[Rfam]
RNA: MIR2912 microRNA precursor family
Organism: Populus tomentosa
RNA sequence: CCUAGAACUCCAGAUAUGGGCCAAACACUGAAUAGUAUUCAGGCUGCAGGACAGAUUUGGACUUCUCUGUUGUUGCUAUAAUUUGGACUUACAAACGGCCUUCUUAGAUCUUGGUGUCCACAUGAAAGUUGUAGGCCUAUGUCAUAUGAAAGUUGUGUA
Numbered sequence: 001c002c003u004a005g006a007a008c009u010c011c012a013g014a015u016a017u018g019g020g021c022c023a024a025a026c027a028c029u030g031a032a033u034a035g036u037a038u039u040c041a042g043g044c045u046g047c048a049g050g051a052c053a054g055a056u057u058u059g060g061a062c063u064u065c066u067c068u069g070u071u072g073u074u075g076c077u078a079u080a081a082u083u084u085g086g087a088c089u090u091a092c093a094a095a096c097g098g099c100c101u102u103c104u105u106a107g108a109u110c111u112u113g114g115u116g117u118c119c120a121c122a123u124g125a126a127a128g129u130u131g132u133a134g135g136c137c138u139a140u141g142u143c144a145u146a147u148g149a150a151a152g153u154u155g156u157g158u159a
Stems, first nucleotide, its partner, number of pairs: 003157002006154002009149001011148002013143008021134001023132001025130001027129003035123002042118002048112004054105002059100002062098002072088003